The family of this 179-nucleotide RNA from Bacillus safensis is "Lysine riboswitch aptamer". Taxonomically the source falls in Bacillus (Bacteria, Bacillati, Bacillota, Caryophanales).

RNA sequence: CAGUGAGGUAGAGGUUGCGCGGAUGAUGAGUCACUCAUAGGAGAGAUGGAAUCGUAGAUCAUGAGAAAAAAGGCAUCAGCGCCGAAGUGUAAAGAGAGCUCCAACUUUCUUUAUGCUGGGUCUGCAUUGAAUAAAUGCAGGACUGCCACGUCUUUGAAGCGUGGAGGGCUAUCCGGAGA
Numbered sequence: 001c002a003g004u005g006a007g008g009u010a011g012a013g014g015u016u017g018c019g020c021g022g023a024u025g026a027u028g029a030g031u032c033a034c035u036c037a038u039a040g041g042a043g044a045g046a047u048g049g050a051a052u053c054g055u056a057g058a059u060c061a062u063g064a065g066a067a068a069a070a071a072g073g074c075a076u077c078a079g080c081g082c083c084g085a086a087g088u089g090u091a092a093a094g095a096g097a098g099c100u101c102c103a104a105c106u107u108u109c110u111u112u113a114u115g116c117u118g119g120g121u122c123u124g125c126a127u128u129g130a131a132u133a134a135a136u137g138c139a140g141g142a143c144u145g146c147c148a149c150g151u152c153u154u155u156g157a158a159g160c161g162u163g164g165a166g167g168g169c170u171a172u173c174c175g176g177a178g179a
Stems, first nucleotide, its partner, number of pairs: 007173005017082004022077004034065005040059001086117012118144002121141008146164006